[Rfam]
The record is an 898-nucleotide RNA, which matches "MISL RNA" in Rfam. By type it is a small RNA.
Nucleotides: 898
Base pairs, nucleotide, nucleotide: 007020008019009018010017011016027053028052029051031049032048033047034046035045036044037043339367340366341365342364343363344362346360347359348358371404372403373402374401375400377389378388379387380386392589393588394587395586396585397584432449433448434447435446436445437444438443458473459472460471461470462469463468495535496534497533498532499531503524504523507521508520509519549562550561551560552559593754594753595752600750601749602748603747616656617655618654619652620651621650628644629643630642631641632640633639665697666696667695668694669693670692671691672690673689674688702739703738704737705736710731711730713728714727715726716725717724760781761780762779763778764777765776767774768773782800783799784798785797786796789827790826791825792824805821806820807819808818809817836870837869838868839867840866841865842864843857844856846854847853848852883897884896885895
Number, partner (000 for none) and nucleotide at each position: 001000g002000a003000u004000a005000a006000u007020c008019c009018u010017g011016g012000g013000u014000g015000a016011c017010u018009g019008g020007g021000a022000a023000a024000a025000a026000a027053g028052g029051g030000c031049u032048g033047g034046c035045u036044a037043g038000g039000c040000u041000g042000a043037u044036u045035g046034g047033c048032c049031a050000g051029c052028c053027c054000c055000c056000u057000c058000c059000a060000a061000g062000a063000c064000a065000g066000u067000a068000u069000g070000g071000c072000g073000a074000a075000c076000c077000g078000c079000a080000c081000u082000u083000u084000c085000g086000g087000g088000u089000g090000a091000g092000g093000g094000g095000a096000g097000a098000c099000a100000a101000g102000c103000u104000g105000c106000c107000g108000a109000u110000u111000g112000g113000a114000g115000g116000c117000a118000g119000g120000a121000u122000u123000c124000a125000c126000c127000a128000g129000g130000g131000u132000c133000g134000c135000a136000g137000g138000g139000a140000u141000g142000g143000a144000u145000u146000u147000c148000c149000c150000g151000c152000u153000c154000g155000u156000u157000u158000c159000c160000g161000g162000u163000u164000u165000c166000g167000g168000c169000u170000g171000g172000a173000a174000a175000c176000a177000a178000g179000g180000u181000a182000c183000c184000g185000g186000u187000u188000a189000g190000u191000u192000u193000g194000c195000u196000u197000c198000g199000g200000u201000u202000u203000g204000c205000u206000a207000a208000a209000a210000a211000g212000u213000a214000c215000u216000u217000g218000g219000g220000g221000g222000g223000a224000g225000u226000c227000g228000a229000u230000c231000c232000a233000c234000a235000a236000a237000a238000a239000a240000c241000u242000g243000c244000g245000g246000g247000c248000u249000u250000g251000g252000c253000c254000g255000c256000g257000a258000g259000g260000g261000g262000c263000g264000a265000a266000c267000u268000a269000g270000g271000a272000g273000c274000c275000g276000c277000c278000c279000c280000g281000a282000g283000c284000c285000c286000g287000g288000u289000u290000g291000a292000a293000g294000c295000a296000a297000c298000a299000g300000c301000c302000g303000g304000a305000u306000c307000a308000u309000g310000c311000g312000a313000a314000c315000c316000u317000u318000c319000g320000g321000g322000c323000g324000a325000a326000c327000g328000u329000g330000g331000u332000g333000g334000a335000g336000u337000c338000a339367g340366g341365a342364u343363u344362c345000g346360a347359g348358c349000c350000u351000g352000c353000u354000c355000c356000g357000g358348g359347c360346u361000a362344g363343a364342a365341u366340c367339c368000a369000a370000u371404c372403a373402u374401a375400g376000u377389u378388a379387c380386c381000u382000a383000a384000c385000a386380g387379g388378u389377a390000a391000a392589g393588g394587u395586u396585g397584c398000c399000a400375c401374u402373a403372u404371g405000u406000c407000a408000u409000c410000a411000g412000c413000a414000c415000g416000g417000u418000a419000u420000g421000g422000a423000c424000c425000a426000a427000a428000a429000a430000u431000u432449g433448g434447c435446u436445g437444g438443u439000a440000a441000c442000a443438g444437c445436c446435a447434g448433c449432c450000g451000g452000a453000c454000g455000a456000a457000a458473u459472c460471u461470g462469c463468c464000g465000a466000a467000a468463g469462g470461c471460g472459g473458g474000a475000c476000a477000a478000a479000g480000c481000c482000g483000g484000g485000g486000u487000u488000c489000a490000a491000a492000c493000c494000g495535g496534g497533a498532u499531g500000g501000c502000c503524a504523c505000u506000g507521g508520c509519u510000c511000a512000a513000g514000a515000c516000a517000a518000g519509a520508g521507c522000c523504g524503u525000g526000a527000a528000a529000a530000c531499c532498a533497u534496c535495c536000g537000c538000c539000c540000c541000g542000g543000c544000g545000g546000c547000g548000a549562u550561g551560c552559g553000a554000c555000a556000a557000a558000c559552c560551g561550c562549a563000g564000c565000g566000c567000u568000g569000c570000c571000a572000a573000g574000c575000a576000a577000g578000a579000u580000g581000a582000g583000c584397g585396c586395a587394a588393c589392c590000u591000g592000a593754g594753a595752g596000g597000u598000a599000a600750g601749a602748g603747g604000c605000g606000a607000g608000a609000c610000c611000c612000g613000u614000u615000g616656c617655a618654c619652g620651g621650g622000c623000c624000a625000a626000c627000g628644c629643a630642c631641c632640g633639c634000c635000a636000a637000a638000a639633g640632c641631g642630g643629u644628g645000g646000c647000c648000g649000a650621c651620c652619u653000u654618g655617u656616g657000c658000c659000a660000g661000g662000g663000a664000g665697u666696g667695g668694a669693g670692a671691g672690g673689c674688a675000a676000a677000u678000c679000a680000c681000u682000u683000g684000c685000a686000g687000a688674u689673g690672u691671c692670u693669c694668u695667u696666c697665g698000c699000c700000g701000a702739g703738u704737c705736c706000g707000g708000a709000a710731g711730c712000c713728c714727g715726g716725g717724g718000c719000u720000g721000c722000a723000a724717c725716c726715c727714c728713g729000a730711g731710c732000c733000a734000a735000a736705g737704g738703g739702c740000a741000a742000a743000u744000a745000a746000g747603c748602c749601u750600c751000a752595c753594u754593c755000g756000a757000a758000a759000a760781u761780u762779c763778a764777g765776g766000a767774u768773c769000g770000c771000a772000a773768g774767a775000c776765c777764c778763u779762g780761a781760a782800c783799g784798g785797c786796c787000c788000c789827g790826u791825c792824a793000u794000g795000a796786g797785g798784c799783c800782g801000a802000c803000a804000a805821c806820u807819c808818c809817g810000c811000g812000a813000g814000u815000c816000a817809c818808g819807g820806a821805g822000a823000g824792u825791g826790g827789c828000g829000u830000c831000g832000g833000g834000g835000a836870g837869c838868c839867a840866u841865c842864g843857a844856c845000c846854u847853g848852c849000a850000a851000u852848g853847c854846a855000g856844g857843u858000g859000c860000c861000c862000a863000a864842c865841g866840a867839u868838g869837g870836c871000a872000c873000a874000u875000g876000g877000g878000a879000a880000a881000g882000a883897g884896a885895g886000c887000g888000u889000g890000g891000c892000g893000a894000a895885c896884u897883c898000c